[Rfam]
RNA sequence: ACGAUGUUCCGCUGCAAUGAAGAAAGAGGACAUGAGCAUCUG
Numbered sequence: 001a002c003g004a005u006g007u008u009c010c011g012c013u014g015c016a017a018u019g020a021a022g023a024a025a026g027a028g029g030a031c032a033u034g035a036g037c038a039u040c041u042g
Stems, first nucleotide, its partner, number of pairs: 003040007013032002015029001018026001
Rfam assigns this 42-nucleotide sequence from Bacillus safensis to the family "Ribosomal protein L19 leader". The base pairs follow the family's consensus structure, which was predicted with CMfinder. On this family, see Zengel and Lindahl, Prog Nucleic Acid Res Mol Biol 1994: "Diverse mechanisms for regulating ribosomal protein synthesis in Escherichia coli". A search with the family's covariance model found it, with a score of 40 bits. Rfam describes the family as follows. This family is a putative r-protein leader autoregulatory structure found in B. subtilis and other low-GC Gram-positive bacteria. It is located in the 5' untranslated regions of mRNAs encoding ribosomal protein L19 (rplS).